[Rfam]
RNA: mir-35_2 microRNA precursor family
RNA sequence: AGUUGAUUUCUUCUGUGUUUAUGAAUCAACACAUAGCGUUCAUAAACCGGAGUAAAUCAGCUCU
Numbered sequence: 001a002g003u004u005g006a007u008u009u010c011u012u013c014u015g016u017g018u019u020u021a022u023g024a025a026u027c028a029a030c031a032c033a034u035a036g037c038g039u040u041c042a043u044a045a046a047c048c049g050g051a052g053u054a055a056a057u058c059a060g061c062u063c064u
Base pairs, nucleotide, nucleotide: 001062002061003060005058006057007056008055009054010052011051012050013049017047018046019045020044021043022042023041